Ribosomal protein L10 leader: a 126-nucleotide RNA from Pilibacter termitis. Lineage of the source: Bacteria > Bacilli > Lactobacillales > Enterococcaceae > Pilibacter. It is annotated as a cis-regulatory leader.
RNA sequence: GUUAAGUAAUUAACUGUACCGAAGACAGUAGGUGAGGCGACUCGUAAAUCCUACCGAGGACACAAUAUGAGAAAAUCAUUUGUCCCUUCAUGUCUUUUUGUGUACGUGAAGUUUUUUUAUUGUAAA
Numbered sequence: 001g002u003u004a005a006g007u008a009a010u011u012a013a014c015u016g017u018a019c020c021g022a023a024g025a026c027a028g029u030a031g032g033u034g035a036g037g038c039g040a041c042u043c044g045u046a047a048a049u050c051c052u053a054c055c056g057a058g059g060a061c062a063c064a065a066u067a068u069g070a071g072a073a074a075a076u077c078a079u080u081u082g083u084c085c086c087u088u089c090a091u092g093u094c095u096u097u098u099u100g101u102g103u104a105c106g107u108g109a110a111g112u113u114u115u116u117u118u119a120u121u122g123u124a125a126a
Base pairs, nucleotide, nucleotide: 028054029053030052031051032050034043035042036041086111087110088109089108090107091106092105093104095102